[Rfam]
RNA sequence: CAUCGCGAUGCUCCUUAAUUCAGGGAGAUAUCGUUAUGAAAAUACUCUCAAAGAAAGCGCUCAAAGAGUUGGUCUCGUACUCACUUCAACACAUCGCUCGAUUAGAGAAGGCAGGCACAUUUCCCAAGCGGGUAAUGCUGGGCCCUAACCGUGUCGGAUGGGUGGAACAGGAAGUCUUGGACUGGCUUGAAGAGCGACUACUCGCUCGAGAGUAAACACAUGCUUCUUUGGAGCAUGGGCGGCCCGGAGGUGCACACUUC
Number, nucleotide and partner (000 for none) at each position: 001c038002a037003u036004c000005g034006c033007g032008a031009u030010g029011c000012u028013c027014c000015u025016u024017a000018a000019u000020u000021c000022a000023g000024g016025g015026a000027g013028a012029u010030a009031u008032c007033g006034u005035u000036a003037u002038g001039a000040a000041a000042a000043u000044a000045c000046u000047c000048u000049c000050a000051a000052a000053g000054a000055a000056a199057g198058c196059g195060c194061u193062c000063a000064a000065a000066g188067a187068g186069u185070u184071g183072g182073u181074c180075u179076c000077g000078u000079a175080c174081u173082c171083a000084c000085u167086u000087c165088a000089a163090c162091a000092c160093a159094u158095c157096g000097c000098u000099c153100g000101a000102u151103u000104a000105g000106a000107g000108a000109a000110g144111g143112c142113a000114g139115g138116c137117a000118c000119a000120u000121u000122u132123c131124c130125c000126a000127a000128g000129c000130g124131g123132g122133u000134a000135a000136u000137g116138c115139u114140g000141g000142g112143c111144c110145c000146u000147a000148a000149c000150c000151g102152u000153g099154u000155c000156g000157g095158a094159u093160g092161g000162g090163u089164g000165g087166a000167a085168c000169a000170g000171g082172a000173a081174g080175u079176c000177u000178u000179g075180g074181a073182c072183u071184g070185g069186c068187u067188u066189g000190a000191a000192g000193a061194g060195c059196g058197a000198c057199u056200a000201c246202u242203c241204g240205c239206u000207c000208g000209a000210g000211a000212g000213u000214a000215a000216a000217c238218a000219c000220a000221u235222g234223c233224u232225u231226c230227u000228u000229u000230g226231g225232a224233g223234c222235a221236u000237g000238g217239g205240c204241g203242g202243c000244c000245c000246g201247g259248a258249g257250g000251u000252g000253c000254a000255c000256a000257c249258u248259u247260c000

Ruegeria trans44 sRNA: a 260-nucleotide RNA sequence from Thalassobium sp. R2A62. By type it is a small RNA. Taxonomically the source falls in Thalassobium (Bacteria, Pseudomonadati, Pseudomonadota, Paracoccaceae). The family's consensus secondary structure was predicted with RNAfold.